The family of this 358-nucleotide RNA from Allochromatium vinosum is "transfer-messenger RNA". The family's RNA type in Rfam is non-coding RNA gene.
RNA sequence: GGGGGCGACAUGGCUUCGACGUGGGUCGCAAAACCUGAGGUGCAUGCCGAGGUGCGGGAAACCUCGUAAAACCAUCCGCAAACCAAUAGUUGCCAACGACGACAACUACGCUCUCGCUGCUUAAUCCCAGCGGGCCUCAGACCGCUGCCUGCCUAUGGACGGCGGAUUCCUGGGGUAAAAACACAUAGGAUCGCGGUGACGGGCGUCCGGACCUGAUCUGCUAAAACCUAACGGAAUCGCCGACUGAUCGCCCUGCCCCUUGGGCGGCGGGAGGCUAAAAACAAUAAAGCGGGCUAAGCAUGUAGGACCAAUGGCAGAGGGCUUGCGGACGCGGGUUCGAUUCCCGCCGCCUCCACCA
Numbered sequence: 001g002g003g004g005g006c007g008a009c010a011u012g013g014c015u016u017c018g019a020c021g022u023g024g025g026u027c028g029c030a031a032a033a034c035c036u037g038a039g040g041u042g043c044a045u046g047c048c049g050a051g052g053u054g055c056g057g058g059a060a061a062c063c064u065c066g067u068a069a070a071a072c073c074a075u076c077c078g079c080a081a082a083c084c085a086a087u088a089g090u091u092g093c094c095a096a097c098g099a100c101g102a103c104a105a106c107u108a109c110g111c112u113c114u115c116g117c118u119g120c121u122u123a124a125u126c127c128c129a130g131c132g133g134g135c136c137u138c139a140g141a142c143c144g145c146u147g148c149c150u151g152c153c154u155a156u157g158g159a160c161g162g163c164g165g166a167u168u169c170c171u172g173g174g175g176u177a178a179a180a181a182c183a184c185a186u187a188g189g190a191u192c193g194c195g196g197u198g199a200c201g202g203g204c205g206u207c208c209g210g211a212c213c214u215g216a217u218c219u220g221c222u223a224a225a226a227c228c229u230a231a232c233g234g235a236a237u238c239g240c241c242g243a244c245u246g247a248u249c250g251c252c253c254u255g256c257c258c259c260u261u262g263g264g265c266g267g268c269g270g271g272a273g274g275c276u277a278a279a280a281a282c283a284a285u286a287a288a289g290c291g292g293g294c295u296a297a298g299c300a301u302g303u304a305g306g307a308c309c310a311a312u313g314g315c316a317g318a319g320g321g322c323u324u325g326c327g328g329a330c331g332c333g334g335g336u337u338c339g340a341u342u343c344c345c346g347c348c349g350c351c352u353c354c355a356c357c358a
Base pairs, nucleotide, nucleotide: 001354002353003352004351005350006349007348020327021326022325023324024323025322026321027320035314036313037312040309043302044301045300046299047298048066049065050064051063052062053080054079055078056077057076058075113134114133115132116131117130118129119128135175136174137173138172139171140170142165143164144163145162147160149158152189153188154187155186156185157184193221194220195219196218205237206236208234210232239275240274241273244270245269246268248266250265251264252263255294256293257292258291260288261287331347332346333345334344335343